The record is a 77-nucleotide sequence from Helianthus annuus, which matches "Small nucleolar RNA R12" in Rfam. Rfam classes the family as a C/D-box small nucleolar RNA. The source organism's lineage runs through Eukaryota, Streptophyta, Streptophytina, Heliantheae alliance and Helianthus. On this family, see Chen et al., Nucleic Acids Res 2003: "The high diversity of snoRNAs in plants: identification and comparative study of 120 snoRNA genes from Oryza sativa". Rfam describes the family as follows. snoR12 is a C/D box small nucleolar RNA, which acts as a methylation guide for 25S ribosomal RNA in plants. snoR12 has been alternatively named snoZ44 in Arabidopsis and snoZ131 in rice. Its family is annotated with nucleolus and RNA processing in the Gene Ontology. Pairs were carried over by alignment from the consensus structure, which was predicted with PFOLD.
RNA sequence: AUGAGGAUGAUGAAAAAAUCAGACGGAUUCCCAAUGAUUUUCUAAGGUGAUCUUACAACCAGCUACUUCUGACUCAU
Numbered sequence: 001a002u003g004a005g006g007a008u009g010a011u012g013a014a015a016a017a018a019u020c021a022g023a024c025g026g027a028u029u030c031c032c033a034a035u036g037a038u039u040u041u042c043u044a045a046g047g048u049g050a051u052c053u054u055a056c057a058a059c060c061a062g063c064u065a066c067u068u069c070u071g072a073c074u075c076a077u
Stems, first nucleotide, its partner, number of pairs: 001077005